[Rfam]
RNA sequence: CCAAGCAAUAGAGGUUGCAAUGUUUACAAAUCCCCCUGAGUCGCCAACGACUGUGAUGGGGUGCUCAAGAAACAUUGCCGAAAUGGCUAGCUGUGUUGGAUGCAGCUGACUGUUGGGCCAUGAGUGAAUAAUUCAUGGACUGUCUCGUUAGAAAUAACGAGGAGCGCUAUUUUGGAU
Numbered sequence: 001c002c003a004a005g006c007a008a009u010a011g012a013g014g015u016u017g018c019a020a021u022g023u024u025u026a027c028a029a030a031u032c033c034c035c036c037u038g039a040g041u042c043g044c045c046a047a048c049g050a051c052u053g054u055g056a057u058g059g060g061g062u063g064c065u066c067a068a069g070a071a072a073c074a075u076u077g078c079c080g081a082a083a084u085g086g087c088u089a090g091c092u093g094u095g096u097u098g099g100a101u102g103c104a105g106c107u108g109a110c111u112g113u114u115g116g117g118c119c120a121u122g123a124g125u126g127a128a129u130a131a132u133u134c135a136u137g138g139a140c141u142g143u144c145u146c147g148u149u150a151g152a153a154a155u156a157a158c159g160a161g162g163a164g165c166g167c168u169a170u171u172u173u174g175g176a177u
Stems, first nucleotide, its partner, number of pairs: 007171005017078009031063001033061004082114005088108006115141002118138008143162007
RNA: Lysine riboswitch aptamer